[Rfam]
RNA sequence: UAACGAUAAAGGUAAACCCUGCGUGAUCGGGGAACGCAAAAUAAUAGGGUCUUUAACUACAAGGACGUAGUGCUAAGAUAGCCUUAUUGCCGAA
Numbered sequence: 001u002a003a004c005g006a007u008a009a010a011g012g013u014a015a016a017c018c019c020u021g022c023g024u025g026a027u028c029g030g031g032g033a034a035c036g037c038a039a040a041a042u043a044a045u046a047g048g049g050u051c052u053u054u055a056a057c058u059a060c061a062a063g064g065a066c067g068u069a070g071u072g073c074u075a076a077g078a079u080a081g082c083c084u085u086a087u088u089g090c091c092g093a094a
Stems, first nucleotide, its partner, number of pairs: 012037002017032005040088004046084003049079003057072001
c-di-GMP-I riboswitch aptamer: a 94-nucleotide sequence from a Patescibacteria group bacterium. A search with the family's covariance model found it, with a score of 50 bits. Gene Ontology term of the family: cyclic-di-GMP binding. About the family: GEMM was predicted in a large-scale screen for bacterial structured RNA regulatory elements.